[Rfam]
RNA sequence: GAUCAGCAAUGUCGGAGCGUCAGGACAGGGCGCAUCGGAACUUCCGGCUCUAGAAAUGGGCUUGCGAAGGUUGAUUUCCCUUUC
Numbered sequence: 001g002a003u004c005a006g007c008a009a010u011g012u013c014g015g016a017g018c019g020u021c022a023g024g025a026c027a028g029g030g031c032g033c034a035u036c037g038g039a040a041c042u043u044c045c046g047g048c049u050c051u052a053g054a055a056a057u058g059g060g061c062u063u064g065c066g067a068a069g070g071u072u073g074a075u076u077u078c079c080c081u082u083u084c
Stems, first nucleotide, its partner, number of pairs: 011048006017033005
The family of this 84-nucleotide sequence is "HTH-XRE RNA". It is annotated as a cis-regulatory element. It is one of the family's seed sequences.